[Rfam]
RNA sequence: CGGACAGGGGGGUUCCCGCCCAACAGGCGGGGCCUGUCCGAAGGUUGCGCCACGGCGCGAUCAGUGGUUGUCGCUCGGGGGUGAUCGACC
Numbered sequence: 001c002g003g004a005c006a007g008g009g010g011g012g013u014u015c016c017c018g019c020c021c022a023a024c025a026g027g028c029g030g031g032g033c034c035u036g037u038c039c040g041a042a043g044g045u046u047g048c049g050c051c052a053c054g055g056c057g058c059g060a061u062c063a064g065u066g067g068u069u070g071u072c073g074c075u076c077g078g079g080g081g082u083g084a085u086c087g088a089c090c
Base pairs, nucleotide, nucleotide: 001040002039003038004037005036006035007034008033014032015031016030017029018028019027020026043062044061045060046059047058048057049056050055

Shown here is a 90-nucleotide RNA from Streptomyces montanisoli, a member of the family "che1 RNA". Rfam classes the family as a small RNA. The match comes from Rfam's covariance-model search (91 bits). NCBI's taxonomy places the organism under Bacteria, Bacillati, Actinomycetota, Streptomycetaceae, Streptomyces.